[Rfam]
RNA sequence: AAUUCAUGUGAUGAAAUUGGAUUUUUCUCACGACGGUCGUCUGAGACACUCUUAAGUGUCGGCGCUGAUACAAUUAUCCAAUACUUCUGAUGAUU
Numbered sequence: 001a002a003u004u005c006a007u008g009u010g011a012u013g014a015a016a017u018u019g020g021a022u023u024u025u026u027c028u029c030a031c032g033a034c035g036g037u038c039g040u041c042u043g044a045g046a047c048a049c050u051c052u053u054a055a056g057u058g059u060c061g062g063c064g065c066u067g068a069u070a071c072a073a074u075u076a077u078c079c080a081a082u083a084c085u086u087c088u089g090a091u092g093a094u095u
Base pairs, nucleotide, nucleotide: 001095002094003093004092047058048057049056
RNA: Small nucleolar RNA Z161/Z228